[Rfam]
RNA sequence: AUAUUUCUUCGGGGCAGGGUGCGAUUCCCGACCGACGGUGACAAGCGAGUCUUGAAGUCCGUGACCCACUAUUCAAGUGUGGUUGAUCUAGUGAGAAUCUAGAACCGACAGUUAAAGUCUGGAUGGGAGAAGAAAAGA
Numbered sequence: 001a002u003a004u005u006u007c008u009u010c011g012g013g014g015c016a017g018g019g020u021g022c023g024a025u026u027c028c029c030g031a032c033c034g035a036c037g038g039u040g041a042c043a044a045g046c047g048a049g050u051c052u053u054g055a056a057g058u059c060c061g062u063g064a065c066c067c068a069c070u071a072u073u074c075a076a077g078u079g080u081g082g083u084u085g086a087u088c089u090a091g092u093g094a095g096a097a098u099c100u101a102g103a104a105c106c107g108a109c110a111g112u113u114a115a116a117g118u119c120u121g122g123a124u125g126g127g128a129g130a131a132g133a134a135a136a137g138a
Stems, first nucleotide, its partner, number of pairs: 004135007017029003031118002033107002035062004057105002066082002087103005109121003